[Rfam]
RNA: 7SK RNA
Organism: Grantiella picta
RNA sequence: GGAUGUGAGGGCAAUGUGGCUGUGAGAUGUGAUAUGCCAUUGAUUGCAAAGGUUGAUUUGACAGUCUGCUAGCUCAGGAGAGUGUCCCCUUUCUUCCUCGACGAUCCAUGUGUGUUCCUCCUGAAGCUGUGCACUUGGCUGAUGAGGAACAGCCUACCCAGCAGAGAUACUGUUCAUUGGGAAAGGCUGUGUGGUAGCUAUGGUCUCCUGCUGGCAGCUCUAAGUAAGCCCAAGGUCCACUUGCAGAAGGAUGUAGGGUAGUCAAGCAUUGAACACUGAAGGCACAUCUUAAUGAGAAGCUGCGUGCAGCAGUCUGACAUUG
Numbered sequence: 001g002g003a004u005g006u007g008a009g010g011g012c013a014a015u016g017u018g019g020c021u022g023u024g025a026g027a028u029g030u031g032a033u034a035u036g037c038c039a040u041u042g043a044u045u046g047c048a049a050a051g052g053u054u055g056a057u058u059u060g061a062c063a064g065u066c067u068g069c070u071a072g073c074u075c076a077g078g079a080g081a082g083u084g085u086c087c088c089c090u091u092u093c094u095u096c097c098u099c100g101a102c103g104a105u106c107c108a109u110g111u112g113u114g115u116u117c118c119u120c121c122u123g124a125a126g127c128u129g130u131g132c133a134c135u136u137g138g139c140u141g142a143u144g145a146g147g148a149a150c151a152g153c154c155u156a157c158c159c160a161g162c163a164g165a166g167a168u169a170c171u172g173u174u175c176a177u178u179g180g181g182a183a184a185g186g187c188u189g190u191g192u193g194g195u196a197g198c199u200a201u202g203g204u205c206u207c208c209u210g211c212u213g214g215c216a217g218c219u220c221u222a223a224g225u226a227a228g229c230c231c232a233a234g235g236u237c238c239a240c241u242u243g244c245a246g247a248a249g250g251a252u253g254u255a256g257g258g259u260a261g262u263c264a265a266g267c268a269u270u271g272a273a274c275a276c277u278g279a280a281g282g283c284a285c286a287u288c289u290u291a292a293u294g295a296g297a298a299g300c301u302g303c304g305u306g307c308a309g310c311a312g313u314c315u316g317a318c319a320u321u322g
Stems, first nucleotide, its partner, number of pairs: 001107003006100006013092002018089002024086002027083002030080001033077001035076002037072001038068002042066004047060002118166003121138004126134001139161003146157001148155001197267003204260001206258006218249002221246001224244005294320001296318001299313005